[Rfam]
RNA sequence: CGCCCCGCCCUCUCACCACGGAUCGUUCGGCACGUACCGCCGAUGGAGGAAAUCAUG
Number, nucleotide and partner (000 for none) at each position: 001c000002g000003c000004c000005c000006c000007g000008c000009c049010c048011u047012c046013u000014c045015a044016c000017c000018a000019c000020g000021g000022a000023u000024c000025g000026u000027u043028c042029g041030g040031c039032a000033c000034g000035u000036a000037c000038c000039g031040c030041c029042g028043a027044u015045g014046g012047a011048g010049g009050a000051a000052a000053u000054c000055a000056u000057g000

msiK RNA: a 57-nucleotide sequence from Corynebacterium canis.
Rfam classes the family as a cis-regulatory element.
A search with the family's covariance model found it, with a score of 45 bits.